Rfam assigns this 86-nucleotide RNA sequence from Escherichia coli to the family "sroD RNA". Lineage of the source: Bacteria > Pseudomonadati > Pseudomonadota > Enterobacteriaceae > Escherichia. Rfam describes the family as follows. This family consists of a number of bacterial sroD RNA genes of around 90 bases in length. sroD is found in several Enterobacterial species but its function is unknown. The literature on the family includes a 2003 paper in Nucleic Acids Res by Vogel et al., "RNomics in Escherichia coli detects new sRNA species and indicates parallel transcriptional output in bacteria". The sequence is in the family's curated seed alignment.
RNA sequence: UUACGUGACGAAGCGCGCGGCAAAGUGGACAAUAAAGCCUGAGCGUUAAGUCAGUCGUCAGACGCCGGUUAAUCCGGCGUUUUUUU
Numbered sequence: 001u002u003a004c005g006u007g008a009c010g011a012a013g014c015g016c017g018c019g020g021c022a023a024a025g026u027g028g029a030c031a032a033u034a035a036a037g038c039c040u041g042a043g044c045g046u047u048a049a050g051u052c053a054g055u056c057g058u059c060a061g062a063c064g065c066c067g068g069u070u071a072a073u074c075c076g077g078c079g080u081u082u083u084u085u086u
Stems, first nucleotide, its partner, number of pairs: 015059001016057002019039003061081008